[Rfam]
RNA sequence: UGUACAAAGUGUAUGAUGAGAAAGCACUGAAACUGUGUAUGAAGUGCAUUCAGUCCAACGCUGAGCUUUGUGUC
Number, nucleotide and partner (000 for none) at each position: 001u000002g073003u072004a071005c070006a069007a068008a067009g066010u065011g000012u000013a000014u000015g000016a000017u000018g000019a000020g000021a000022a000023a000024g000025c000026a000027c000028u000029g000030a000031a000032a000033c000034u000035g000036u000037g000038u000039a000040u000041g000042a000043a000044g000045u000046g000047c000048a000049u000050u000051c000052a000053g000054u000055c000056c000057a000058a000059c000060g000061c000062u000063g000064a000065g010066c009067u008068u007069u006070g005071u004072g003073u002074c000
Rfam assigns this 74-nucleotide RNA sequence from Scopus umbretta to the family "Small nucleolar RNA SNORD69". The match comes from Rfam's covariance-model search (39 bits). Rfam classes the family as a C/D-box small nucleolar RNA. On this family, see Huttenhofer et al., EMBO J 2001: "RNomics: an experimental approach that identifies 201 candidates for novel, small, non-messenger RNAs in mouse". Rfam 15.1 lists 524 matches to the family in 496 species. About the family: snoRNA HBII-210 belongs to the C/D family of snoRNAs. It is the human orthologue of the mouse MBII-210 and is predicted to guide the 2'O-ribose methylation of large 28S rRNA on residue G4464. NCBI's taxonomy places the organism under Eukaryota, Chordata, Craniata, Coelurosauria, Scopus. The base pairs follow the family's consensus structure.